[Rfam]
RNA sequence: GGCAGAGUAAGCCGUUGUGAGUUAUGUGCCGGUGAGACGGGGAGUUGUUCACCGGACGUAGUGUGGUCCGCCAUAGGAGGAUCAUGCGCUGUGCAGCGGCUGCAUCCCGCUGCC
Numbered sequence: 001g002g003c004a005g006a007g008u009a010a011g012c013c014g015u016u017g018u019g020a021g022u023u024a025u026g027u028g029c030c031g032g033u034g035a036g037a038c039g040g041g042g043a044g045u046u047g048u049u050c051a052c053c054g055g056a057c058g059u060a061g062u063g064u065g066g067u068c069c070g071c072c073a074u075a076g077g078a079g080g081a082u083c084a085u086g087c088g089c090u091g092u093g094c095a096g097c098g099g100c101u102g103c104a105u106c107c108c109g110c111u112g113c114c
Stems, first nucleotide, its partner, number of pairs: 001114005010101010020090003026057002029055008040107003044103001061087009
RNA: THF (Tetrahydrofolate) riboswitch aptamer
Organism: Clostridium sp. AM58-1XD